[Rfam]
RNA sequence: GUGUUUUUCAUAGUAUUAGAUUAAGAUAAAGGUUUAAAAAGGAAAGGAGAUGUCGUGAGACAUCUCCUUUUUUAUCU
Numbered sequence: 001g002u003g004u005u006u007u008u009c010a011u012a013g014u015a016u017u018a019g020a021u022u023a024a025g026a027u028a029a030a031g032g033u034u035u036a037a038a039a040a041g042g043a044a045a046g047g048a049g050a051u052g053u054c055g056u057g058a059g060a061c062a063u064c065u066c067c068u069u070u071u072u073u074a075u076c077u
Stems, first nucleotide, its partner, number of pairs: 046067007
A member of the RNA family "Bacteroidetes FopS (family of paralogous sRNAs)" from Duncaniella muris, 77 nucleotides long. The RNA-binding protein RbpB and BTncRNA_FopS sRNA are involved in the post-transcription regulation of polysaccharide utilisation loci (PUL). FopS sRNAs function as post-transcriptional repressors by binding to the vicinity of the start codon of the first mRNA of target PUL polycistrons, typically corresponding to the cognate SusC homolog, impeding translation of the respective glycan transporter. Gene Ontology term of the family: sRNA-mediated gene silencing. Pairs were carried over by alignment from the consensus structure, which is taken from published work. It is annotated as a small RNA.